[Rfam]
RNA sequence: GCUGCUGUGAUGACUUUUUUUGGUCUUUAGUCGGAUACCCCUUCACUCUCUUCAUGAGUGAGACUUCGAGUCUGAGCUGC
Numbered sequence: 001g002c003u004g005c006u007g008u009g010a011u012g013a014c015u016u017u018u019u020u021u022g023g024u025c026u027u028u029a030g031u032c033g034g035a036u037a038c039c040c041c042u043u044c045a046c047u048c049u050c051u052u053c054a055u056g057a058g059u060g061a062g063a064c065u066u067c068g069a070g071u072c073u074g075a076g077c078u079g080c
Stems, first nucleotide, its partner, number of pairs: 001080002004077002